[Rfam]
This 162-nucleotide RNA sequence from Corchorus capsularis belongs to the Rfam family "U1 spliceosomal RNA". The family's RNA type in Rfam is spliceosomal small nuclear RNA. Its family is annotated with pre-mRNA 5'-splice site binding, U1 snRNP and mRNA 5'-splice site recognition in the Gene Ontology. The organism belongs to Corchorus, within Eukaryota. Rfam 15.1 lists 40,184 matches to the family in 1,499 species.

Nucleotides: 162
Stems, first nucleotide, its partner, number of pairs: 012120004016048006023042005049089003053086001055083003060078002062075002091115003094111003098107002135161005143154004
Number, partner (000 for none) and nucleotide at each position: 001000u002000u003000a004000c005000u006000u007000a008000c009000c010000u011000g012120g013119a014118c015117g016048g017047g018046g019045u020044c021043a022000a023042u024041g025040g026039g027038c028000g029000a030000u031000c032000a033000u034000a035000a036000a037000g038027g039026c040025c041024c042023a043021u044020g045019g046018c047017c048016u049089a050088g051087a052000c053086u054000u055083g056082u057081g058000g059000c060078c061077u062075c063074c064000a065000u066000u067000g068000c069000a070000c071000u072000u073000g074063g075062g076000a077061g078060g079000u080000g081057c082056a083055c084000c085000u086053g087051u088050c089049u090000a091115a092114g093113g094111u095110c096109u097000c098107c099106u100000a101000u102000u103000a104000g105000u106099a107098g108000g109096a110095g111094a112000g113093c114092c115091u116000a117015c118014g119013u120012c121000a122000u123000a124000a125000u126000u127000u128000g129000u130000g131000g132000u133000a134000g135161u136160g137159g138158g139157g140000g141000c142000c143154u144153g145152c146151g147000u148000u149000c150000g151146c152145g153144c154143g155000g156000c157139c158138c159137c160136u161135g162000u